[Rfam]
RNA sequence: GGAUGAGGGCAGUCUGGCUGUGAGAUCUGAUAUGUCACUGAUUGCACCAGUUGAUUUGACUGAUCUGGCUACCUUAGGCAGGUGUUCCCUUUCUCUCUCAACAUUCUGUGUGUGUCCCUCCUGAAGCUGUGUGCUUGUUUAAUGAGGAGAGCCUCCCCAAUAGACACAGUCAAGGGUGUGUGGUAGCUGUGCUCCCCUGCUGGAAGCUCUCAGGAAGCUCAAGGUCCACUUGAAGAUGAAUGUAGGGUAGUCAAGCACUCAAUACUGAAGACACAUCCAAAUGAGAAUCUGCAUGCAGCAGUCUGCCAGUGUCU
Numbered sequence: 001g002g003a004u005g006a007g008g009g010c011a012g013u014c015u016g017g018c019u020g021u022g023a024g025a026u027c028u029g030a031u032a033u034g035u036c037a038c039u040g041a042u043u044g045c046a047c048c049a050g051u052u053g054a055u056u057u058g059a060c061u062g063a064u065c066u067g068g069c070u071a072c073c074u075u076a077g078g079c080a081g082g083u084g085u086u087c088c089c090u091u092u093c094u095c096u097c098u099c100a101a102c103a104u105u106c107u108g109u110g111u112g113u114g115u116c117c118c119u120c121c122u123g124a125a126g127c128u129g130u131g132u133g134c135u136u137g138u139u140u141a142a143u144g145a146g147g148a149g150a151g152c153c154u155c156c157c158c159a160a161u162a163g164a165c166a167c168a169g170u171c172a173a174g175g176g177u178g179u180g181u182g183g184u185a186g187c188u189g190u191g192c193u194c195c196c197c198u199g200c201u202g203g204a205a206g207c208u209c210u211c212a213g214g215a216a217g218c219u220c221a222a223g224g225u226c227c228a229c230u231u232g233a234a235g236a237u238g239a240a241u242g243u244a245g246g247g248u249a250g251u252c253a254a255g256c257a258c259u260c261a262a263u264a265c266u267g268a269a270g271a272c273a274c275a276u277c278c279a280a281a282u283g284a285g286a287a288u289c290u291g292c293a294u295g296c297a298g299c300a301g302u303c304u305g306c307c308a309g310u311g312u313c314u
Stems, first nucleotide, its partner, number of pairs: 001107003005099005011092002016089002022086002025083005031077001035068003040065004044060001115169001119164002122137003126134002139160002146156003186256003192250002195247006207238001210235001215231003279314001281312001285307001289301004

The family of this 314-nucleotide sequence from Cnemophilus loriae is "7SK RNA". From the family's description: 7SK was discovered as an abundant small nuclear RNA in the mid-70s but a possible function has only recently been suggested. Two independent studies have found that 7SK RNA binds the CDK9/cyclin T complex (known as elongation factor P-TEFb). P-TEFb activates transcription by phosphorylating the C-terminal domain of RNA polymerase II. This process is negatively regulated by the 7SK RNP. The secondary structure of 7SK RNA shown here was proposed by Wasserman and Steitz on the basis of chemical modification and enzymatic cleavage experiments. By type it is a non-coding RNA gene.